Background: Rfam assigns this 145-nucleotide RNA from Mus musculus to the family "Small nucleolar RNA SNORA48". The snoRNA ACA 48 has been identified to guide pseudouridylation of the residue U3797 in the 28S rRNA subunit. The family is grouped with related families in Rfam's "SNORA48 clan". The match comes from Rfam's covariance-model search (56 bits).
[Rfam]
RNA sequence: GGCUCCUUGGCAAUGGGCAAAGAGACAUCUUGUUGGUGGUGAUGUUCCUAUAUCAGUCAGGAACAGAGCAGAUGGCAGUCCUUUGUGCAUCCUAACUUAAUGUCUGGUUUGGUGGCUAAACUUGCUUUAUGUCUAGGACUCAUAA
Numbered sequence: 001g002g003c004u005c006c007u008u009g010g011c012a013a014u015g016g017g018c019a020a021a022g023a024g025a026c027a028u029c030u031u032g033u034u035g036g037u038g039g040u041g042a043u044g045u046u047c048c049u050a051u052a053u054c055a056g057u058c059a060g061g062a063a064c065a066g067a068g069c070a071g072a073u074g075g076c077a078g079u080c081c082u083u084u085g086u087g088c089a090u091c092c093u094a095a096c097u098u099a100a101u102g103u104c105u106g107g108u109u110u111g112g113u114g115g116c117u118a119a120a121c122u123u124g125c126u127u128u129a130u131g132u133c134u135a136g137g138a139c140u141c142a143u144a145a
Stems, first nucleotide, its partner, number of pairs: 002064001004062004009058001014055003020049001022047001024043001026041004085139002088136001100132002105129003110124002114121001